[Rfam]
Nucleotides: 082
Base pairs, nucleotide, nucleotide: 001081002080003079004078005077006076007075010025011024012023013022027053028052029051030050031049058074059073060072061071062070
Number, partner (000 for none) and nucleotide at each position: 001081g002080c003079c004078g005077u006076c007075a008000u009000c010025g011024u012023a013022u014000a015000g016000g017000g018000g019000u020000c021000a022013g023012u024011a025010c026000a027053c028052c029051a030050g031049u032000u033000u034000g035000u036000g037000g038000u039000u040000c041000u042000a043000c044000g045000a046000a047000g048000c049031a050030c051029u052028g053027g054000a055000a056000a057000c058074g059073c060072a061071a062070g063000u064000u065000c066000g067000a068000g069000u070062c071061u072060u073059g074058c075007u076006g077005a078004c079003g080002g081001c082000a